RNA: Small nucleolar RNA U2-30
Organism: Ursus americanus
RNA sequence: GAGCAAUGAUGGAAAGGUUUUACUACUGACGUUUGCAAUUACGAAGAUUUCUGCACUUGAUCUGAGCUCA
Number, nucleotide and partner (000 for none) at each position: 001g069002a068003g067004c066005a000006a000007u000008g000009a000010u000011g000012g000013a034014a033015a032016g000017g030018u029019u028020u000021u000022a000023c000024u000025a000026c000027u000028g019029a018030c017031g000032u015033u014034u013035g000036c000037a000038a000039u000040u000041a000042c000043g000044a000045a000046g000047a000048u000049u000050u000051c000052u000053g000054c000055a000056c000057u000058u000059g000060a000061u000062c000063u000064g000065a000066g004067c003068u002069c001070a000